[Rfam]
Rfam assigns this 529-nucleotide part of an RNA from Tigriopus californicus to the family "Eukaryotic large subunit ribosomal RNA".
Gene Ontology terms of the family: ribosome and structural constituent of ribosome.
Lineage of the source: Eukaryota > Opisthokonta > Protostomia > Podoplea > Tigriopus.
RNA sequence: UAGAAUAAUGUAGGUAAGGGAAGUCGGCAAAUUGGAUCCGUAACUUCGGGAUAAGGAUUGGCUCUGAGGGUUGGGAUGAUCGGGCUUUGUGCAGGAAGCAGGUGUGUUCAUCGGCGGGCCUGGGUGAGUCUUUCGGGACAAAACCGGUCCCGUUCACGAGCCUCUGUGGAUUGCCAUUGCUUCGCGGAGCCCUGCCCUUCACGGGGCGGGUGUUUCUCCGUUCGGUCAUCGAUCAACAACCAGCUCAGAACUGGCACGGACAAGGGGAAUCCGACUGUCUAAUUAAAACAAAGCAUUGCGAUGGUCAGAGAGUGAUUUUGACGCAAUGUGAUUUCUGCCCAGUGCUCUGAAUGUCAAAGUGAAGAGAUUCGUCCAAGCGCGGGUAAACGCGGGGAGUAACUAUGACUCUCUUAAGGUAGCCAAAUGCCUCGUCAUCUAAUUAGUGACGCGCAUGAAUGGAUUAACGAGAUUCCCACUGUCCCUAUCUACUAUCUAGCGAAACAGCAGCCAAGGGAACGGACUUGGAAGA
Numbered sequence: 001u002a003g004a005a006u007a008a009u010g011u012a013g014g015u016a017a018g019g020g021a022a023g024u025c026g027g028c029a030a031a032u033u034g035g036a037u038c039c040g041u042a043a044c045u046u047c048g049g050g051a052u053a054a055g056g057a058u059u060g061g062c063u064c065u066g067a068g069g070g071u072u073g074g075g076a077u078g079a080u081c082g083g084g085c086u087u088u089g090u091g092c093a094g095g096a097a098g099c100a101g102g103u104g105u106g107u108u109c110a111u112c113g114g115c116g117g118g119c120c121u122g123g124g125u126g127a128g129u130c131u132u133u134c135g136g137g138a139c140a141a142a143a144c145c146g147g148u149c150c151c152g153u154u155c156a157c158g159a160g161c162c163u164c165u166g167u168g169g170a171u172u173g174c175c176a177u178u179g180c181u182u183c184g185c186g187g188a189g190c191c192c193u194g195c196c197c198u199u200c201a202c203g204g205g206g207c208g209g210g211u212g213u214u215u216c217u218c219c220g221u222u223c224g225g226u227c228a229u230c231g232a233u234c235a236a237c238a239a240c241c242a243g244c245u246c247a248g249a250a251c252u253g254g255c256a257c258g259g260a261c262a263a264g265g266g267g268a269a270u271c272c273g274a275c276u277g278u279c280u281a282a283u284u285a286a287a288a289c290a291a292a293g294c295a296u297u298g299c300g301a302u303g304g305u306c307a308g309a310g311a312g313u314g315a316u317u318u319u320g321a322c323g324c325a326a327u328g329u330g331a332u333u334u335c336u337g338c339c340c341a342g343u344g345c346u347c348u349g350a351a352u353g354u355c356a357a358a359g360u361g362a363a364g365a366g367a368u369u370c371g372u373c374c375a376a377g378c379g380c381g382g383g384u385a386a387a388c389g390c391g392g393g394g395a396g397u398a399a400c401u402a403u404g405a406c407u408c409u410c411u412u413a414a415g416g417u418a419g420c421c422a423a424a425u426g427c428c429u430c431g432u433c434a435u436c437u438a439a440u441u442a443g444u445g446a447c448g449c450g451c452a453u454g455a456a457u458g459g460a461u462u463a464a465c466g467a468g469a470u471u472c473c474c475a476c477u478g479u480c481c482c483u484a485u486c487u488a489c490u491a492u493c494u495a496g497c498g499a500a501a502c503a504g505c506a507g508c509c510a511a512g513g514g515a516a517c518g519g520a521c522u523u524g525g526a527a528g529a
Stems, first nucleotide, its partner, number of pairs: 001495004010489007018481003035059005044049001060252002063249006069241005075230009084180002088176002091174002098167004106161004111156001113154006120147004125142001128139004253257001265474007272466002276290003293329008304316004333460003339389001342388002344384004349380001352379003359372005392410006411415001431447005508525005